[Rfam]
RNA sequence: CAAGUGGGAUAAAUGGUGGCGUGGGGAAACCCACGAGGAAAGUCCGGGCUUCAAAGGGCAGGAUGCCGGAUAACGUCCGGUGGAGGCGACUCCAAGGCCAGUGCAACAGAAAUAUACCGCCGUCUUUAUGACGGUAAGGGUGGAAGGGCGGUGUAAGAGACCACCGCUUUUGCGGUAACGCAGAAGGCACAUGUAAACCCCAUCCGAAGCAAGACCAAAGAGAACCGUAAGGUUCGUGAAAGCAACAGGCUUGCCCGGUCUGCUUUCAGGUAGGUCGCUUGAGGCUGCCGGUAACGGCAGUCCUAGAUAGAUCACCAUUCACGACAUAACCCGGCUUAUCGUCCCGCUUGCAUU
Numbered sequence: 001c002a003a004g005u006g007g008g009a010u011a012a013a014u015g016g017u018g019g020c021g022u023g024g025g026g027a028a029a030c031c032c033a034c035g036a037g038g039a040a041a042g043u044c045c046g047g048g049c050u051u052c053a054a055a056g057g058g059c060a061g062g063a064u065g066c067c068g069g070a071u072a073a074c075g076u077c078c079g080g081u082g083g084a085g086g087c088g089a090c091u092c093c094a095a096g097g098c099c100a101g102u103g104c105a106a107c108a109g110a111a112a113u114a115u116a117c118c119g120c121c122g123u124c125u126u127u128a129u130g131a132c133g134g135u136a137a138g139g140g141u142g143g144a145a146g147g148g149c150g151g152u153g154u155a156a157g158a159g160a161c162c163a164c165c166g167c168u169u170u171u172g173c174g175g176u177a178a179c180g181c182a183g184a185a186g187g188c189a190c191a192u193g194u195a196a197a198c199c200c201c202a203u204c205c206g207a208a209g210c211a212a213g214a215c216c217a218a219a220g221a222g223a224a225c226c227g228u229a230a231g232g233u234u235c236g237u238g239a240a241a242g243c244a245a246c247a248g249g250c251u252u253g254c255c256c257g258g259u260c261u262g263c264u265u266u267c268a269g270g271u272a273g274g275u276c277g278c279u280u281g282a283g284g285c286u287g288c289c290g291g292u293a294a295c296g297g298c299a300g301u302c303c304u305a306g307a308u309a310g311a312u313c314a315c316c317a318u319u320c321a322c323g324a325c326a327u328a329a330c331c332c333g334g335c336u337u338a339u340c341g342u343c344c345c346g347c348u349u350g351c352a353u354u
Stems, first nucleotide, its partner, number of pairs: 001350010011339001012319007020035006040337003044334005049209004056256004061205005066080005081095001082093004096200002101198002103194003117139002119135006147165002150162003166188001167186008213276004238267006247261005283302008
RNA: Bacterial RNase P class A
Organism: bacterium C-53